A member of the RNA family "skipping-rope RNA" from Lysinibacillus sp. BF-4, 89 nucleotides long.
The family's RNA type in Rfam is small RNA.
The organism belongs to Lysinibacillus, within Bacteria.

[Rfam]
RNA sequence: GUAAUGUGAGGUGGGAAAGGUUCCCCACGCGCUUACGCUCUUAAUGAGUGUAAGUUACCAGAGAUCAGGAUUGCCGCCCUGCUCAUUAC
Dot-bracket structure: ((((((.(..(((((...[[[..))))).(((((((((((.....)))))))))).....)....((((...]]]..))))).))))))